The record is a 63-nucleotide RNA from Ophiophagus hannah, which matches "mir-737 microRNA precursor family" in Rfam. The sequence is in the family's curated seed alignment.
RNA sequence: UUGUUUUUUUAGGUUUUGAUUUUUAUGCCAUGCUCAUGUGAAAAUCAAAAUCUAAAGAAAAUG
Numbered sequence: 001u002u003g004u005u006u007u008u009u010u011a012g013g014u015u016u017u018g019a020u021u022u023u024u025a026u027g028c029c030a031u032g033c034u035c036a037u038g039u040g041a042a043a044a045u046c047a048a049a050a051u052c053u054a055a056a057g058a059a060a061a062u063g
Base pairs, nucleotide, nucleotide: 004060005059006058007057008056009055010054011053012052013051014050015049016048017047018046019045020044021043022042023041024040